[Rfam]
RNA: Alphaproteobacterial ar14
Organism: Rhizobium gallicum
RNA sequence: AUGGUCCGAAGCGAUUCACCCUCCUCCCGAGCCGCUUCGGUCCGACGGGCAGCACUCCUCCUCCCAAGCUGCCAGUCAUUAUCGAAGCCCGGCGCACCUCCUCCCGCGCCGGGCUUUUUAU
Number, nucleotide and partner (000 for none) at each position: 001a000002u000003g000004g000005u000006c000007c039008g038009a037010a000011g035012c034013g033014a000015u031016u030017c029018a000019c000020c000021c000022u000023c000024c000025u000026c000027c000028c000029g017030a016031g015032c000033c013034g012035c011036u000037u009038c008039g007040g000041u000042c000043c000044g077045a076046c075047g000048g073049g072050c071051a070052g069053c068054a000055c000056u000057c000058c000059u000060c000061c000062u000063c000064c000065c000066a000067a000068g053069c052070u051071g050072c049073c048074a000075g046076u045077c044078a000079u000080u000081a000082u000083c000084g000085a116086a115087g114088c113089c112090c111091g110092g109093c108094g107095c106096a000097c000098c000099u000100c000101c000102u000103c000104c000105c000106g095107c094108g093109c092110c091111g090112g089113g088114c087115u086116u085117u000118u000119u000120a000121u000